[Rfam]
RNA sequence: ACCUCUUCGUGUGAAUCAUAAAUGUCCUUAAUAGCAAAUGCCAUUAAGGACAUUUGUGAUUGAUGGGAGGAGGU
Numbered sequence: 001a002c003c004u005c006u007u008c009g010u011g012u013g014a015a016u017c018a019u020a021a022a023u024g025u026c027c028u029u030a031a032u033a034g035c036a037a038a039u040g041c042c043a044u045u046a047a048g049g050a051c052a053u054u055u056g057u058g059a060u061u062g063a064u065g066g067g068a069g070g071a072g073g074u
Base pairs, nucleotide, nucleotide: 002073003072004071005070006069007068008067010065014061015060016059017058018057019056020055021054022053023052024051025050026049027048028047029046030045031044032043034041035040

Background:
mir-4477 microRNA precursor family: a 74-nucleotide sequence from Homo sapiens. Gene Ontology terms of the family: RISC complex and miRNA-mediated post-transcriptional gene silencing. NCBI's taxonomy places the organism under Eukaryota, Eumetazoa, Boreoeutheria, Primates, Homo.